[Rfam]
RNA sequence: GCCAUACCCAGGGGGAGGUUGCAAUGUGCAGCCUGAGAUUAGCAUCUGCUUAAACCCCGGAACCUGAUCCGGUUAGUACCGGCGUAGGAAUGGGAGGCAGUCGAUAC
Numbered sequence: 001g002c003c004a005u006a007c008c009c010a011g012g013g014g015g016a017g018g019u020u021g022c023a024a025u026g027u028g029c030a031g032c033c034u035g036a037g038a039u040u041a042g043c044a045u046c047u048g049c050u051u052a053a054a055c056c057c058c059g060g061a062a063c064c065u066g067a068u069c070c071g072g073u074u075a076g077u078a079c080c081g082g083c084g085u086a087g088g089a090a091u092g093g094g095a096g097g098c099a100g101u102c103g104a105u106a107c
Stems, first nucleotide, its partner, number of pairs: 007094004011058004017033005041050003063088004069082004
The family of this 107-nucleotide sequence from Thalassolituus maritimus is "TPP riboswitch aptamer (THI element)".
The literature on the family includes a 2014 paper in Chem Biol by Warner et al., "Validating fragment-based drug discovery for biological RNAs: lead fragments bind and remodel the TPP riboswitch specifically".
The base pairs follow the family's consensus structure, which is taken from published work.